[Rfam]
RNA sequence: CGCCGAUUUCGCCCAGGCGGAGUUCGACCGCCGCGUGACGUCGUGAGGCCCUUCAUCGACGCGCAUCGCGAGGCCCCUGGGGGUCGAGCCGAUCUGCCGAGUGCUGCAGGUCGCCCCA
Numbered sequence: 001c002g003c004c005g006a007u008u009u010c011g012c013c014c015a016g017g018c019g020g021a022g023u024u025c026g027a028c029c030g031c032c033g034c035g036u037g038a039c040g041u042c043g044u045g046a047g048g049c050c051c052u053u054c055a056u057c058g059a060c061g062c063g064c065a066u067c068g069c070g071a072g073g074c075c076c077c078u079g080g081g082g083g084u085c086g087a088g089c090c091g092a093u094c095u096g097c098c099g100a101g102u103g104c105u106g107c108a109g110g111u112c113g114c115c116c117c118a
Stems, first nucleotide, its partner, number of pairs: 016032005078118003082115002090113002093110005099104001